Record summary: The family of this 80-nucleotide sequence from Neogobius melanostomus is "mir-181 microRNA precursor family". The family's consensus secondary structure was predicted with PFOLD. NCBI's taxonomy places the organism under Eukaryota, Gnathostomata, Teleostomi, Osteoglossocephalai, Neogobius. A reference for the family is Ambros (2001), "microRNAs: tiny regulators with great potential", Cell.
[Rfam]
RNA sequence: GGGUCCUGGUCCACAUUCAUCGCUGUCGGUGGGUUUUGUCUCAGUCGACUCGCCGAACGGUGAAUGGAAACCAUGGCCGC
Numbered sequence: 001g002g003g004u005c006c007u008g009g010u011c012c013a014c015a016u017u018c019a020u021c022g023c024u025g026u027c028g029g030u031g032g033g034u035u036u037u038g039u040c041u042c043a044g045u046c047g048a049c050u051c052g053c054c055g056a057a058c059g060g061u062g063a064a065u066g067g068a069a070a071c072c073a074u075g076g077c078c079g080c
Stems, first nucleotide, its partner, number of pairs: 001080001003078001004076002007073002014066009026056006033049003